[Rfam]
RNA sequence: UAUUAGGUUGAUGCAAAAGUAAUUGCGGUUUUUGCCUUUUUUUUAAAAAAAAAAGAAUGGCAAAAACCGCAAUUACUUUUGCAUCAACCUAAUA
Numbered sequence: 001u002a003u004u005a006g007g008u009u010g011a012u013g014c015a016a017a018a019g020u021a022a023u024u025g026c027g028g029u030u031u032u033u034g035c036c037u038u039u040u041u042u043u044u045a046a047a048a049a050a051a052a053a054a055g056a057a058u059g060g061c062a063a064a065a066a067c068c069g070c071a072a073u074u075a076c077u078u079u080u081g082c083a084u085c086a087a088c089c090u091a092a093u094a
Base pairs, nucleotide, nucleotide: 001094002093003092004091005090006089007088008087009086010085011084012083013082014081015080016079017078018077019076020075021074022073023072024071025070026069027068028067029066030065031064032063033062034061035060036059038057039056040055041054042053043052044051
Background: This 94-nucleotide sequence from Homo sapiens belongs to the Rfam family "mir-548 microRNA precursor family". The family has 11 seed sequences and 3,009 matches in Rfam 15.1. The match comes from Rfam's covariance-model search (90 bits). A reference for the family is Witten et al. (2010), "Ultra-high throughput sequencing-based small RNA discovery and discrete statistical biomarker analysis in a collection of cervical tumours and matched controls", BMC Biol. The organism belongs to Homo, within Eukaryota.